Shown here is a 39-nucleotide RNA from Pseudescherichia vulneris, a member of the family "JUMPstart RNA".
By type it is a cis-regulatory element.
Lineage of the source: Bacteria > Enterobacterales > Enterobacteriaceae > Pseudescherichia > Pseudescherichia vulneris.
The family's consensus secondary structure is taken from published work.
The match comes from Rfam's covariance-model search (46 bits).
[Rfam]
RNA sequence: CAGUCCACGGGUAGCUGUUGAGCCUGGGGCGGUAGCGUG
Numbered sequence: 001c002a003g004u005c006c007a008c009g010g011g012u013a014g015c016u017g018u019u020g021a022g023c024c025u026g027g028g029g030c031g032g033u034a035g036c037g038u039g
Base pairs, nucleotide, nucleotide: 008026009025010024011023012022